The family of this 64-nucleotide sequence from Herminiimonas arsenicoxydans is "Betaproteobacteria toxic small RNA". The source organism's lineage runs through Bacteria, Pseudomonadati, Pseudomonadota, Betaproteobacteria and Herminiimonas. A reference for the family is Kimelman et al. (2012), "A vast collection of microbial genes that are toxic to bacteria", Genome Res. The match comes from Rfam's covariance-model search (53 bits). Pairs were carried over by alignment from the consensus structure, which was predicted with WAR.

RNA sequence: UGUCUCCUCCAACUGAUCAAAUAUUGGAUUCAGCCCGCUGCCGCAAGGAAGCGGGCUUUUUUUU
Numbered sequence: 001u002g003u004c005u006c007c008u009c010c011a012a013c014u015g016a017u018c019a020a021a022u023a024u025u026g027g028a029u030u031c032a033g034c035c036c037g038c039u040g041c042c043g044c045a046a047g048g049a050a051g052c053g054g055g056c057u058u059u060u061u062u063u064u
Stems, first nucleotide, its partner, number of pairs: 008028005032057008